[Rfam]
RNA sequence: UUCUUAUCAAGAGAAGCGGAGGGACUGGCCCGAUGAACCUUCAGCAACCGGAUUACCCAAAAACUUUGGGUACCAAGGUGCUAAAUCCAGCGAUGCGUAAAUUUGCGCUCGGAAGAUAAGAA
Dot-bracket structure: ((((((((....((((....(((.[[[[))).......))))((((.((((.....................))..))))))...(]]]](((.(((........))))))..)))))))))
SAM riboswitch aptamer (S box leader): a 122-nucleotide RNA sequence from Aeribacillus pallidus. Taxonomically the source falls in Aeribacillus (Bacteria, Bacillati, Bacillota, Bacilli). A search with the family's covariance model found it, with a score of 81 bits. The family's consensus secondary structure is taken from published work.